[Rfam]
RNA sequence: UGGAAGUGCCUUUCUGAACCGGUCUGAUUGAUGCCUAGAGAACACCAAUCAUCCCAGCUCAAGGGGCACUUUCCUCGUUCCGACACUCACUGACCAGCCAAUUCAUCAGUGGAUCGAG
Numbered sequence: 001u002g003g004a005a006g007u008g009c010c011u012u013u014c015u016g017a018a019c020c021g022g023u024c025u026g027a028u029u030g031a032u033g034c035c036u037a038g039a040g041a042a043c044a045c046c047a048a049u050c051a052u053c054c055c056a057g058c059u060c061a062a063g064g065g066g067c068a069c070u071u072u073c074c075u076c077g078u079u080c081c082g083a084c085a086c087u088c089a090c091u092g093a094c095c096a097g098c099c100a101a102u103u104c105a106u107c108a109g110u111g112g113a114u115c116g117a118g
Stems, first nucleotide, its partner, number of pairs: 002073012015061003019057001021055002025051004030046001032044002099116001101114005